[Rfam]
RNA sequence: GGCGCGUUGGUCCAGUGGAACGGACAUUGGUCUCUCACACCGAAGACACGGGUUCGACUCCCGUACGCGUCA
Dot-bracket structure: (((((((..((((........)))).(((((.......)))))....(((((.......)))))))))))).
Numbered sequence: 001g002g003c004g005c006g007u008u009g010g011u012c013c014a015g016u017g018g019a020a021c022g023g024a025c026a027u028u029g030g031u032c033u034c035u036c037a038c039a040c041c042g043a044a045g046a047c048a049c050g051g052g053u054u055c056g057a058c059u060c061c062c063g064u065a066c067g068c069g070u071c072a
Stems, first nucleotide, its partner, number of pairs: 001071007010025004027043005048064005